[Rfam]
RNA sequence: UGCACACAAGACUGUAAGUCACUUUGGAUAAAAGCGUCUGUUAAAUAUUAUUAU
Numbered sequence: 001u002g003c004a005c006a007c008a009a010g011a012c013u014g015u016a017a018g019u020c021a022c023u024u025u026g027g028a029u030a031a032a033a034g035c036g037u038c039u040g041u042u043a044a045a046u047a048u049u050a051u052u053a054u
Stems, first nucleotide, its partner, number of pairs: 013043001014041003020036001022034004

The family of this 54-nucleotide RNA from Oncorhynchus tshawytscha is "UnaL2 LINE 3' element". A search with the family's covariance model found it, with a score of 57 bits. The base pairs follow the family's consensus structure, which is taken from published work. The organism belongs to Oncorhynchus, within Eukaryota.